[Rfam]
RNA sequence: UACUGUAAUUCGAAUAGAUCUUGUAUAACCGUCAGAAUUUGGCUGACAAGUCUCUACCUGCUGACCUAAUCAGCAGACUACAAGUGAAAAUAGCGAUGCU
Dot-bracket structure: ...................((((((.....(((((.......)))))..........(((((((.....)))))))..))))))................
Numbered sequence: 001u002a003c004u005g006u007a008a009u010u011c012g013a014a015u016a017g018a019u020c021u022u023g024u025a026u027a028a029c030c031g032u033c034a035g036a037a038u039u040u041g042g043c044u045g046a047c048a049a050g051u052c053u054c055u056a057c058c059u060g061c062u063g064a065c066c067u068a069a070u071c072a073g074c075a076g077a078c079u080a081c082a083a084g085u086g087a088a089a090a091u092a093g094c095g096a097u098g099c100u
Stems, first nucleotide, its partner, number of pairs: 020084006031047005058076007